[Rfam]
RNA sequence: UAAUCGGUCCUUUUCAGGACCAAAAACCAGAUUCAAUGAGAUAAAA
Numbered sequence: 001u002a003a004u005c006g007g008u009c010c011u012u013u014u015c016a017g018g019a020c021c022a023a024a025a026a027c028c029a030g031a032u033u034c035a036a037u038g039a040g041a042u043a044a045a046a
Stems, first nucleotide, its partner, number of pairs: 006021006